Rfam assigns this 37-nucleotide RNA sequence from Alistipes sp. CAG:831 to the family "abiF RNA". A search with the family's covariance model found it, with a score of 49 bits. The family's consensus secondary structure is taken from published work. Rfam's curators write: Actinobacteria, Bacteroidetes, Clostridia, Proteobacteria, one Clostridia phage. Rfam classes the family as a small RNA. Taxonomically the source falls in Alistipes (Bacteria, Bacteroidia, Bacteroidales, Rikenellaceae).

RNA sequence: UCCCCCAAGCCUCUCAACGAUGCUCAAACCGGGGGGC
Numbered sequence: 001u002c003c004c005c006c007a008a009g010c011c012u013c014u015c016a017a018c019g020a021u022g023c024u025c026a027a028a029c030c031g032g033g034g035g036g037c
Base pairs, nucleotide, nucleotide: 001036002035003034004033005032006031008024009023010022